[Rfam]
RNA: Group II catalytic intron D1-D4-1
Organism: Cyanobacteria bacterium FACHB-502
RNA sequence: CGCGAUUGAGGGCAACUUCAAGCGUUCACCGCACAGAAGUCAGCAGAGUCCAUAGUAGUUCCCGUGGGGGACGAAGGGA
Numbered sequence: 001c002g003c004g005a006u007u008g009a010g011g012g013c014a015a016c017u018u019c020a021a022g023c024g025u026u027c028a029c030c031g032c033a034c035a036g037a038a039g040u041c042a043g044c045a046g047a048g049u050c051c052a053u054a055g056u057a058g059u060u061c062c063c064g065u066g067g068g069g070g071a072c073g074a075a076g077g078g079a
Stems, first nucleotide, its partner, number of pairs: 002026001004023001006021006040047002049079003058072006